[Rfam]
RNA sequence: GUGAGUAAAGUUAAUGAUGCUCGUAUAAUGUUGAGGAUAUGGCUCAAAAGUUUCUACCAGAUAACCGUAAAUUAUCUGACUACGAGUGAAAGUGUACCUAGG
Numbered sequence: 001g002u003g004a005g006u007a008a009a010g011u012u013a014a015u016g017a018u019g020c021u022c023g024u025a026u027a028a029u030g031u032u033g034a035g036g037a038u039a040u041g042g043c044u045c046a047a048a049a050g051u052u053u054c055u056a057c058c059a060g061a062u063a064a065c066c067g068u069a070a071a072u073u074a075u076c077u078g079a080c081u082a083c084g085a086g087u088g089a090a091a092g093u094g095u096a097c098c099u100a101g102g
Stems, first nucleotide, its partner, number of pairs: 018088008029049001031047005058078007